[Rfam]
RNA sequence: UGGUAGAUGCACCCUGAUUGAUGGUCUCGGCUUUCGCGCCGAGAUUUUUUUU
Numbered sequence: 001u002g003g004u005a006g007a008u009g010c011a012c013c014c015u016g017a018u019u020g021a022u023g024g025u026c027u028c029g030g031c032u033u034u035c036g037c038g039c040c041g042a043g044a045u046u047u048u049u050u051u052u
Stems, first nucleotide, its partner, number of pairs: 002013003025044007
This 52-nucleotide sequence from [Limnothrix rosea] IAM M-220 belongs to the Rfam family "Nitrogen stress-induced RNA 1". It is annotated as a small RNA. The pairing is the family consensus, mapped onto this sequence. A search with the family's covariance model found it, with a score of 48 bits. For this family Rfam cites "Heterocyst-specific transcription of NsiR1, a non-coding RNA encoded in a tandem array of direct repeats in cyanobacteria" (Ionescu et al., J Mol Biol, 2010).